A member of the RNA family "uup RNA" from Paenibacillus nasutitermitis, 51 nucleotides long. Pairs were carried over by alignment from the consensus structure, which is taken from published work. A search with the family's covariance model found it, with a score of 43 bits. Taxonomically the source falls in Paenibacillus (Bacteria, Bacilli, Caryophanales, Paenibacillaceae). Rfam classes the family as a cis-regulatory element.
[Rfam]
RNA sequence: CCAAGAGCUGCUCCGAACAAAUCGAUAAAACGAUGAAGCGUUGUCCGGAGC
Numbered sequence: 001c002c003a004a005g006a007g008c009u010g011c012u013c014c015g016a017a018c019a020a021a022u023c024g025a026u027a028a029a030a031c032g033a034u035g036a037a038g039c040g041u042u043g044u045c046c047g048g049a050g051c
Base pairs, nucleotide, nucleotide: 011050012049013048014047015046017044018043019042